[Rfam]
RNA: FMN riboswitch aptamer (RFN element)
RNA sequence: AUGAGUCUUCGGGGCAGGGUGAAAUUCCCUACCGGCAGUAUAGCCUGCGAACUCCUGUAAAGGAGCCGAUGCGGUGGAAUUCCGCAGCCGACAGUAUAGUCUGGAUGAGAGAAGAAUGAU
Number, nucleotide and partner (000 for none) at each position: 001a000002u000003g000004a117005g000006u115007c114008u113009u112010c111011g000012g000013g000014g000015c000016a000017g029018g028019g027020u000021g000022a000023a000024a000025u000026u000027c019028c018029c017030u000031a100032c099033c090034g089035g048036c047037a046038g045039u000040a000041u000042a000043g088044c087045c038046u037047g036048c035049g000050a000051a000052c065053u064054c000055c000056u000057g000058u000059a000060a000061a000062g000063g000064a053065g052066c000067c000068g000069a000070u086071g085072c084073g083074g082075u000076g000077g000078a000079a000080u000081u000082c074083c073084g072085c071086a070087g044088c043089c034090g033091a000092c103093a102094g101095u000096a000097u000098a000099g032100u031101c094102u093103g092104g000105a000106u000107g000108a000109g000110a000111g010112a009113a008114g007115a006116a000117u004118g000119a000120u000